Rfam assigns this 575-nucleotide part of an RNA from Bigelowiella natans to the family "Eukaryotic small subunit ribosomal RNA". Clan: SSU clan. Rfam links the family to the GO terms structural constituent of ribosome and ribosome. Lineage of the source: Eukaryota > Rhizaria > Cercozoa > Chlorarachniophyceae > Bigelowiella.
[Rfam]
RNA sequence: UGGCGGAAGGGCACCACAAGGCGUGGAGCUUGCGGCUUAAUUUGACUCAACGCAGGAAAACUUACCAGGUCCGUACAUAGGGAGGAUUGACAGAUUGAUAGCUCUUUCUUGAUUCUAUGGGAGGUGGUGCAUGGCCGUUUCUAGUUCGUGAGUUGACUUGUCAGGUUAAUUCCGGUAACGAGCGAGACCUCAACUCCUAGCGAGCUCAGUACGUUGAAUAUCCGGUGUAGACUUGGGUACAACCAAGAUCCACGAAGGGAGUAGCUUGGUGAAGGCAAUCCGGGUAUGGGCCAGGACCGAGCAUUACGAAAUGAGCAUCCUAGGAGGACGCUUGGUGGGAAACCAAGGGAGGCAUGAGGCGAUAGCAGGUCUGUGAUGCCCUUAGAUGUUCUGGGCUGCACGCGCGCUACAAUGGUGCGAGCAAUGAGAUGAGGGCUGAACCGAGAGGUUUGGCGCGCCUCGUAAACCGCACCCUGCCAGGGAUAGAUCAUUGCAAUUGUUGAUCUUGAACGAGGAAUGCCUAGUAAGCACGAGUCAUCAGCUCGUGCUGAAUACGUCCCUGCCCUUUGUACACA
Numbered sequence: 001u002g003g004c005g006g007a008a009g010g011g012c013a014c015c016a017c018a019a020g021g022c023g024u025g026g027a028g029c030u031u032g033c034g035g036c037u038u039a040a041u042u043u044g045a046c047u048c049a050a051c052g053c054a055g056g057a058a059a060a061c062u063u064a065c066c067a068g069g070u071c072c073g074u075a076c077a078u079a080g081g082g083a084g085g086a087u088u089g090a091c092a093g094a095u096u097g098a099u100a101g102c103u104c105u106u107u108c109u110u111g112a113u114u115c116u117a118u119g120g121g122a123g124g125u126g127g128u129g130c131a132u133g134g135c136c137g138u139u140u141c142u143a144g145u146u147c148g149u150g151a152g153u154u155g156a157c158u159u160g161u162c163a164g165g166u167u168a169a170u171u172c173c174g175g176u177a178a179c180g181a182g183c184g185a186g187a188c189c190u191c192a193a194c195u196c197c198u199a200g201c202g203a204g205c206u207c208a209g210u211a212c213g214u215u216g217a218a219u220a221u222c223c224g225g226u227g228u229a230g231a232c233u234u235g236g237g238u239a240c241a242a243c244c245a246a247g248a249u250c251c252a253c254g255a256a257g258g259g260a261g262u263a264g265c266u267u268g269g270u271g272a273a274g275g276c277a278a279u280c281c282g283g284g285u286a287u288g289g290g291c292c293a294g295g296a297c298c299g300a301g302c303a304u305u306a307c308g309a310a311a312u313g314a315g316c317a318u319c320c321u322a323g324g325a326g327g328a329c330g331c332u333u334g335g336u337g338g339g340a341a342a343c344c345a346a347g348g349g350a351g352g353c354a355u356g357a358g359g360c361g362a363u364a365g366c367a368g369g370u371c372u373g374u375g376a377u378g379c380c381c382u383u384a385g386a387u388g389u390u391c392u393g394g395g396c397u398g399c400a401c402g403c404g405c406g407c408u409a410c411a412a413u414g415g416u417g418c419g420a421g422c423a424a425u426g427a428g429a430u431g432a433g434g435g436c437u438g439a440a441c442c443g444a445g446a447g448g449u450u451u452g453g454c455g456c457g458c459c460u461c462g463u464a465a466a467c468c469g470c471a472c473c474c475u476g477c478c479a480g481g482g483a484u485a486g487a488u489c490a491u492u493g494c495a496a497u498u499g500u501u502g503a504u505c506u507u508g509a510a511c512g513a514g515g516a517a518u519g520c521c522u523a524g525u526a527a528g529c530a531c532g533a534g535u536c537a538u539c540a541g542c543u544c545g546u547g548c549u550g551a552a553u554a555c556g557u558c559c560c561u562g563c564c565c566u567u568u569g570u571a572c573a574c575a
Base pairs, nucleotide, nucleotide: 001573002572003570004569005568007567008566009565010564011563012562013561016557017556020521021520022519023518024517025410027408028407029406031404032403033402034401035399036398041056042055043054044053065394066393067392068391069390071388076119077118078117079116080115089108090107092105093104094103123382124381126380127379128378129377132376133374134370135369136368137366138365139364144183145182146181147180148179149178150159151158152157162175164173165172189358190357191356192355194326195325196324197323198322199321200320204316205315206314207313208312329349331347332346333345334344335343336342414473415472416471417470418469419468426461427460428459435454436453439450440449441448442447480511485506486505487504488503489502490501527549528548529547530546531545532544533543534542